[Rfam]
RNA: c-di-AMP riboswitch aptamer (ydaO/yuaA leader)
RNA sequence: CCCCAGGCAACGCCUAAUUCGUGCAGAAGCGGGGGACCCAAUUCCCGGGGCGAACCGGUUUUUACCGCAGGGCUACCCUUGGCCCGAGCCCGUCAGCUAACCCCGCCGGCGUCAAAGGGGAAGGCG
Numbered sequence: 001c002c003c004c005a006g007g008c009a010a011c012g013c014c015u016a017a018u019u020c021g022u023g024c025a026g027a028a029g030c031g032g033g034g035g036a037c038c039c040a041a042u043u044c045c046c047g048g049g050g051c052g053a054a055c056c057g058g059u060u061u062u063u064a065c066c067g068c069a070g071g072g073c074u075a076c077c078c079u080u081g082g083c084c085c086g087a088g089c090c091c092g093u094c095a096g097c098u099a100a101c102c103c104c105g106c107c108g109g110c111g112u113c114a115a116a117g118g119g120g121a122a123g124g125c126g
Stems, first nucleotide, its partner, number of pairs: 011111004018028003029106006039047001048091003056067004070085004